The record is a 73-nucleotide RNA sequence from Mediterraneibacter butyricigenes, which matches "Fluoride riboswitch aptamer (crcB RNA motif)" in Rfam. Lineage of the source: Bacteria > Bacillati > Clostridia > Lachnospirales > Mediterraneibacter.
RNA sequence: CUGGAAUCAGGGAAUGAAGUUCUCCCAUGGGAAACCUAAACUGCUUUGGAUGGCUGAUGACUUCUACGAUGAU
Numbered sequence: 001c002u003g004g005a006a007u008c009a010g011g012g013a014a015u016g017a018a019g020u021u022c023u024c025c026c027a028u029g030g031g032a033a034a035c036c037u038a039a040a041c042u043g044c045u046u047u048g049g050a051u052g053g054c055u056g057a058u059g060a061c062u063u064c065u066a067c068g069a070u071g072a073u
Stems, first nucleotide, its partner, number of pairs: 010026004016064006043054003